[Rfam]
RNA sequence: ACCUUUGUGGUGAGCGGCACGACCAGCUCCUGCUAAAUCCCCCAGGUCCGGAAGGAAGCAAGGGUAGGCGGUUGUAGCGGUGCGAUGCCGCUUAUUUUUUU
Numbered sequence: 001a002c003c004u005u006u007g008u009g010g011u012g013a014g015c016g017g018c019a020c021g022a023c024c025a026g027c028u029c030c031u032g033c034u035a036a037a038u039c040c041c042c043c044a045g046g047u048c049c050g051g052a053a054g055g056a057a058g059c060a061a062g063g064g065u066a067g068g069c070g071g072u073u074g075u076a077g078c079g080g081u082g083c084g085a086u087g088c089c090g091c092u093u094a095u096u097u098u099u100u101u
Base pairs, nucleotide, nucleotide: 009096010095011094012093013092014091015090016089017088018087019086020084021083022081023080

A member of the RNA family "Bacteroidales small SRP" from Cyclobacterium lianum, 101 nucleotides long. The family's consensus secondary structure is taken from published work. Gene Ontology terms of the family: SRP-dependent cotranslational protein targeting to membrane, signal sequence recognition and signal recognition particle, plasma membrane targeting. For this family Rfam cites "A high-resolution transcriptome map identifies small RNA regulation of metabolism in the gut microbe Bacteroides thetaiotaomicron" (Ryan et al., Nat Commun, 2020). It is annotated as a non-coding RNA gene.